[Rfam]
RNA sequence: GAGCUGUGAUGAAAUUGGCAUAAGCGUUGGUUGGGUCCUUCGCAUUCUUCUGAUUUCUCAGAUGUUCUCGCCUCACUCCUGAGCUC
Numbered sequence: 001g002a003g004c005u006g007u008g009a010u011g012a013a014a015u016u017g018g019c020a021u022a023a024g025c026g027u028u029g030g031u032u033g034g035g036u037c038c039u040u041c042g043c044a045u046u047c048u049u050c051u052g053a054u055u056u057c058u059c060a061g062a063u064g065u066u067c068u069c070g071c072c073u074c075a076c077u078c079c080u081g082a083g084c085u086c
Stems, first nucleotide, its partner, number of pairs: 001086004
RNA: small nucleolar RNA snoR114